[Rfam]
RNA sequence: GGGGCUGUAGCGCAGCUGGGAGCGCGCUUCCCUCGCACGGAAGAGGUCGGGAGUUCGAAUCUCCUCAGCUCCA
Numbered sequence: 001g002g003g004g005c006u007g008u009a010g011c012g013c014a015g016c017u018g019g020g021a022g023c024g025c026g027c028u029u030c031c032c033u034c035g036c037a038c039g040g041a042a043g044a045g046g047u048c049g050g051g052a053g054u055u056c057g058a059a060u061c062u063c064c065u066c067a068g069c070u071c072c073a
Stems, first nucleotide, its partner, number of pairs: 001072007010025004027043005049065005